RNA sequence: UAUCGAAGGUCCCGGCGGAGAGGAGUAGACUCUGUAAUGAGCCCUCUCUAACAAUACCAAUGAUAUGCCUUCGUACAUGGAUUUCUGGCCUUAUCAAAGGACGCCUCAAAUUUCCAUUUUGAUUCGUCUUGAACCCUUGGGCUACAUCGGA
Numbered sequence: 001u002a003u004c005g006a007a008g009g010u011c012c013c014g015g016c017g018g019a020g021a022g023g024a025g026u027a028g029a030c031u032c033u034g035u036a037a038u039g040a041g042c043c044c045u046c047u048c049u050a051a052c053a054a055u056a057c058c059a060a061u062g063a064u065a066u067g068c069c070u071u072c073g074u075a076c077a078u079g080g081a082u083u084u085c086u087g088g089c090c091u092u093a094u095c096a097a098a099g100g101a102c103g104c105c106u107c108a109a110a111u112u113u114c115c116a117u118u119u120u121g122a123u124u125c126g127u128c129u130u131g132a133a134c135c136c137u138u139g140g141g142c143u144a145c146a147u148c149g150g151a
Stems, first nucleotide, its partner, number of pairs: 004073006011020001013018001023048003030041003088142004093137001100128002103125001106122005
Source information:
Rfam assigns this 151-nucleotide RNA sequence from Dorcoceras hygrometricum to the family "Small nucleolar RNA snoR145". Gene Ontology terms of the family: RNA processing and nucleolus.